A member of the RNA family "Mammalian CPEB3 ribozyme" from Crocodylus porosus, 76 nucleotides long. The base pairs follow the family's consensus structure, which is taken from published work. A reference for the family is Salehi-Ashtiani et al. (2006), "A genomewide search for ribozymes reveals an HDV-like sequence in the human CPEB3 gene", Science. Its family is annotated with RNA nuclease activity in the Gene Ontology.
RNA sequence: CGCUGCAAGUUUGAGGCCAAAGCAGAAGCACUCAUGGCACAGCCUGUCUGGUUUCAGUGAAUCUGUGAAUUCUGUU
Numbered sequence: 001c002g003c004u005g006c007a008a009g010u011u012u013g014a015g016g017c018c019a020a021a022g023c024a025g026a027a028g029c030a031c032u033c034a035u036g037g038c039a040c041a042g043c044c045u046g047u048c049u050g051g052u053u054u055c056a057g058u059g060a061a062u063c064u065g066u067g068a069a070u071u072c073u074g075u076u
Base pairs, nucleotide, nucleotide: 015044016043017042021076022075023074024073025072026071027070028040048065050063051062052061053060054059